[Rfam]
RNA sequence: AACAUGCUUCCUUAGAUCCAUCUUUGUUUGAUGUCUCUUUGCUGAGUUCUGCUUAUAGAUUUUAUCAUGAGUAGCUCCAGCUAAGAGGGAUCAGCAACCUUACUGUUGCACAGUCAAAGAUGCUUGAGUCAUUGGCAUGUAAGAAAAAUAUACCUUCAUUCUAGUCACUUACAUUCUGAUAGAAAUGGCUGUACUGUAUGUCAUUUUCUCCUAUCAGAAUUUGGCUGGAGUGUGGACAUU
Numbered sequence: 001a002a003c004a005u006g007c008u009u010c011c012u013u014a015g016a017u018c019c020a021u022c023u024u025u026g027u028u029u030g031a032u033g034u035c036u037c038u039u040u041g042c043u044g045a046g047u048u049c050u051g052c053u054u055a056u057a058g059a060u061u062u063u064a065u066c067a068u069g070a071g072u073a074g075c076u077c078c079a080g081c082u083a084a085g086a087g088g089g090a091u092c093a094g095c096a097a098c099c100u101u102a103c104u105g106u107u108g109c110a111c112a113g114u115c116a117a118a119g120a121u122g123c124u125u126g127a128g129u130c131a132u133u134g135g136c137a138u139g140u141a142a143g144a145a146a147a148a149u150a151u152a153c154c155u156u157c158a159u160u161c162u163a164g165u166c167a168c169u170u171a172c173a174u175u176c177u178g179a180u181a182g183a184a185a186u187g188g189c190u191g192u193a194c195u196g197u198a199u200g201u202c203a204u205u206u207u208c209u210c211c212u213a214u215c216a217g218a219a220u221u222u223g224g225c226u227g228g229a230g231u232g233u234g235g236a237c238a239u240u
Stems, first nucleotide, its partner, number of pairs: 002140007011128005019122008029093004035087004041081004046077001049074004055068001058066003094109005154235002157232002161228001163226004175218008187209002
Description:
Small nucleolar RNA SNORA53: a 240-nucleotide sequence from Naja naja. The snoRNA ACA53 belongs to the H/ACA family of pseudouridylation guide snoRNAs. The base pairs follow the family's consensus structure, which was predicted with RNAalifold. Gene Ontology terms of the family: RNA processing and nucleolus. The family's RNA type in Rfam is H/ACA-box small nucleolar RNA. It scores 177 bits against the family's covariance model.